Notes:
Rfam assigns this 99-nucleotide sequence from Cohnella faecalis to the family "Purine riboswitch aptamer". It scores 59 bits against the family's covariance model.
[Rfam]
RNA sequence: UUAGCACGGUGAUAACUAUCGCGUAUAGGUCGGGAAUCGGCCCGAACGUCUCUACCCGGAAACCCUAAUUUCCGGACUACGCGGCAAUCUCAGACGACG
Numbered sequence: 001u002u003a004g005c006a007c008g009g010u011g012a013u014a015a016c017u018a019u020c021g022c023g024u025a026u027a028g029g030u031c032g033g034g035a036a037u038c039g040g041c042c043c044g045a046a047c048g049u050c051u052c053u054a055c056c057c058g059g060a061a062a063c064c065c066u067a068a069u070u071u072c073c074g075g076a077c078u079a080c081g082c083g084g085c086a087a088u089c090u091c092a093g094a095c096g097a098c099g
Stems, first nucleotide, its partner, number of pairs: 019084007028047001030045005056075007